[Rfam]
RNA sequence: GCACGUCCCCUAUCUUUUCCAAUAGGGCAGUUAACUUUUGGCGGUGGCAUUUAGGGGUAUCCCGAGGAGAGUAUUGAGCAUAGCAAUGGCAUAUACGUUUAUCUCCGUCCCUCGUGCGAUGUGUUUUUAUCGCAUUGUGUUUUUUAUCUCAUGGUGCAACUGGGCACACUUACUGCAUUAUUCAAACACUACCAUUUUGUACACUGUACUCCCAAAUUGACGUACUUCCGGCACUCAGAAAAUGUACACGUACAUUCACUGUUUCGACUUGCUGCAUUGGUUUGCAGUCCUGCGGAGUGUGGUUAUUUAACACCGUCUUUAAUAGCUCCAUAGCUAACAGGCAAAUUUUUGAUUGUCCAAAGCUCAAAAGGCUUGCUUUCGCACAAAAAGGCUUUUUUGUUU
Numbered sequence: 001g002c003a004c005g006u007c008c009c010c011u012a013u014c015u016u017u018u019c020c021a022a023u024a025g026g027g028c029a030g031u032u033a034a035c036u037u038u039u040g041g042c043g044g045u046g047g048c049a050u051u052u053a054g055g056g057g058u059a060u061c062c063c064g065a066g067g068a069g070a071g072u073a074u075u076g077a078g079c080a081u082a083g084c085a086a087u088g089g090c091a092u093a094u095a096c097g098u099u100u101a102u103c104u105c106c107g108u109c110c111c112u113c114g115u116g117c118g119a120u121g122u123g124u125u126u127u128u129a130u131c132g133c134a135u136u137g138u139g140u141u142u143u144u145u146a147u148c149u150c151a152u153g154g155u156g157c158a159a160c161u162g163g164g165c166a167c168a169c170u171u172a173c174u175g176c177a178u179u180a181u182u183c184a185a186a187c188a189c190u191a192c193c194a195u196u197u198u199g200u201a202c203a204c205u206g207u208a209c210u211c212c213c214a215a216a217u218u219g220a221c222g223u224a225c226u227u228c229c230g231g232c233a234c235u236c237a238g239a240a241a242a243u244g245u246a247c248a249c250g251u252a253c254a255u256u257c258a259c260u261g262u263u264u265c266g267a268c269u270u271g272c273u274g275c276a277u278u279g280g281u282u283u284g285c286a287g288u289c290c291u292g293c294g295g296a297g298u299g300u301g302g303u304u305a306u307u308u309a310a311c312a313c314c315g316u317c318u319u320u321a322a323u324a325g326c327u328c329c330a331u332a333g334c335u336a337a338c339a340g341g342c343a344a345a346u347u348u349u350u351g352a353u354u355g356u357c358c359a360a361a362g363c364u365c366a367a368a369a370g371g372c373u374u375g376c377u378u379u380c381g382c383a384c385a386a387a388a389a390g391g392c393u394u395u396u397u398u399g400u401u402u
Stems, first nucleotide, its partner, number of pairs: 008027006064109002066106003116133004137189004154167004199234002202231001206225004212280004236261003241256006271288006289341004297313004323336005359395005375382002